[Rfam]
RNA sequence: GACUCAAAAUAAUUCAAUCACAGGUUGACGGGGACUCUUCUCUCGAGUCUAAUUAAUUCUUACAAAAUGA
Numbered sequence: 001g002a003c004u005c006a007a008a009a010u011a012a013u014u015c016a017a018u019c020a021c022a023g024g025u026u027g028a029c030g031g032g033g034a035c036u037c038u039u040c041u042c043u044c045g046a047g048u049c050u051a052a053u054u055a056a057u058u059c060u061u062a063c064a065a066a067a068u069g070a
Stems, first nucleotide, its partner, number of pairs: 014028005032050003036046002